[Rfam]
RNA sequence: UAAAUCAGAAGUAUGCUACUCCACCAAACAUAGUAUGCUUCUGUUAAAAAAAGAGGAAAGCAACACCCGUCAGACUCACGGUGCGGCAGUGUGGAGACCUGUCGUAAUGCUUCCAGGAUUUUGCUUCCCGGUACGCGAGAAUGCACGCGAAAUUUAGGUGCGUUUAGAGUCGAGAAAUUAUGGCA
Number, nucleotide and partner (000 for none) at each position: 001u000002a000003a000004a000005u000006c043007a042008g041009a040010a039011g038012u037013a036014u035015g034016c033017u032018a031019c000020u000021c000022c000023a000024c000025c000026a000027a000028a000029c000030a000031u018032a017033g016034u015035a014036u013037g012038c011039u010040u009041c008042u007043g006044u000045u000046a000047a000048a000049a000050a000051a000052a000053g000054a000055g000056g000057a000058a000059a000060g000061c000062a000063a000064c000065a000066c000067c081068c080069g079070u078071c000072a000073g171074a170075c169076u168077c167078a070079c069080g068081g067082u106083g105084c104085g103086g102087c101088a100089g099090u000091g098092u097093g000094g000095a000096g000097a092098c091099c089100u088101g087102u086103c085104g084105u083106a082107a000108u000109g136110c135111u133112u000113c131114c130115a000116g128117g000118a000119u000120u000121u000122u000123g000124c000125u000126u000127c000128c116129c000130g114131g113132u000133a111134c000135g110136c109137g000138a000139g165140a164141a163142u162143g161144c160145a159146c158147g000148c000149g000150a000151a000152a000153u000154u000155u000156a000157g000158g146159u145160g144161c143162g142163u141164u140165u139166a000167g077168a076169g075170u074171c073172g000173a000174g000175a000176a000177a000178u000179u000180a000181u000182g000183g000184c000185a000
The family of this 185-nucleotide RNA sequence is "malK-I RNA". The base pairs follow the family's consensus structure, which is taken from published work. Rfam classes the family as a cis-regulatory element.